Shown here is a 35-nucleotide RNA sequence, a member of the family "DUF805b RNA". Clan: DUF805 clan. Rfam classes the family as a cis-regulatory element. Rfam's curators put it in the seed alignment.

[Rfam]
RNA sequence: ACAGCGAAUUCCGAAAAGCUGUGAGAGAGUAGGAG
Numbered sequence: 001a002c003a004g005c006g007a008a009u010u011c012c013g014a015a016a017a018g019c020u021g022u023g024a025g026a027g028a029g030u031a032g033g034a035g
Base pairs, nucleotide, nucleotide: 002021003020004019005018010034011033012032